[Rfam]
RNA sequence: UAUUUGGCCUUGAAGAGGACUAGUAAAUAGAAAGAUUCUAAAAGGAAGGAAGAUCCAUCGACUGAAAGAUUUUCUAAGAUUACUUCUUUUGAACCCACCCUCUAAGCUGCAAAUGAAAAAAUUUGUCCGUUUCGCCAACGUUACAGGCUUCAAGAGGAUUAAGUUUUAUUUACUGCUUAAUCAAUUUGGGUGGUACCGCGAAUUACCUUCGUCCCAGUA
Numbered sequence: 001u002a003u004u005u006g007g008c009c010u011u012g013a014a015g016a017g018g019a020c021u022a023g024u025a026a027a028u029a030g031a032a033a034g035a036u037u038c039u040a041a042a043a044g045g046a047a048g049g050a051a052g053a054u055c056c057a058u059c060g061a062c063u064g065a066a067a068g069a070u071u072u073u074c075u076a077a078g079a080u081u082a083c084u085u086c087u088u089u090u091g092a093a094c095c096c097a098c099c100c101u102c103u104a105a106g107c108u109g110c111a112a113a114u115g116a117a118a119a120a121a122u123u124u125g126u127c128c129g130u131u132u133c134g135c136c137a138a139c140g141u142u143a144c145a146g147g148c149u150u151c152a153a154g155a156g157g158a159u160u161a162a163g164u165u166u167u168a169u170u171u172a173c174u175g176c177u178u179a180a181u182c183a184a185u186u187u188g189g190g191u192g193g194u195a196c197c198g199c200g201a202a203u204u205a206c207c208u209u210c211g212u213c214c215c216a217g218u219a
Stems, first nucleotide, its partner, number of pairs: 007107002015102004026090002029087003037079003048075008109126006128140003157182007187216004198212005